[Rfam]
RNA: BsrF
RNA sequence: GCGAUGAGCUCGUUUGCGUAAGACGGACAGACAUUCCUUUUUAUGAGGAACAUGUUGUGGAGCAUGGUCUGGACGCCGCAAAUUUCGAGAAAACCCUGCCAGCUGGCAGGGUUU
Numbered sequence: 001g002c003g004a005u006g007a008g009c010u011c012g013u014u015u016g017c018g019u020a021a022g023a024c025g026g027a028c029a030g031a032c033a034u035u036c037c038u039u040u041u042u043a044u045g046a047g048g049a050a051c052a053u054g055u056u057g058u059g060g061a062g063c064a065u066g067g068u069c070u071g072g073a074c075g076c077c078g079c080a081a082a083u084u085u086c087g088a089g090a091a092a093a094c095c096c097u098g099c100c101a102g103c104u105g106g107c108a109g110g111g112u113u114u
Stems, first nucleotide, its partner, number of pairs: 014081005024075002028071005035046002051066002054063003091114009